[Rfam]
RNA: SAM riboswitch aptamer (S box leader)
RNA sequence: UUCUUAUCUAGAGAGGUGGAGGGACUGGCCCUUUGAAGCCUCGGCAACAGACCGUAUGUGAACUGUGCCAAUUCCAGUAGCGAUUUGCUAGAAGAUGAGAA
Numbered sequence: 001u002u003c004u005u006a007u008c009u010a011g012a013g014a015g016g017u018g019g020a021g022g023g024a025c026u027g028g029c030c031c032u033u034u035g036a037a038g039c040c041u042c043g044g045c046a047a048c049a050g051a052c053c054g055u056a057u058g059u060g061a062a063c064u065g066u067g068c069c070a071a072u073u074c075c076a077g078u079a080g081c082g083a084u085u086u087g088c089u090a091g092a093a094g095a096u097g098a099g100a101a
Stems, first nucleotide, its partner, number of pairs: 001101008013042005021031003025077004043069004048065002053058001073093001078090005